[Rfam]
RNA: Plastid-clpP 5UTR RNA
Organism: Populus trichocarpa
RNA sequence: AAUUCUGUUUGCAAAAACAAAGAGAAGCAGAUCAAUUCUAUACCAGAGAAGUACCAAUACACAAUG
Numbered sequence: 001a002a003u004u005c006u007g008u009u010u011g012c013a014a015a016a017a018c019a020a021a022g023a024g025a026a027g028c029a030g031a032u033c034a035a036u037u038c039u040a041u042a043c044c045a046g047a048g049a050a051g052u053a054c055c056a057a058u059a060c061a062c063a064a065u066g
Stems, first nucleotide, its partner, number of pairs: 003022002006019005051060003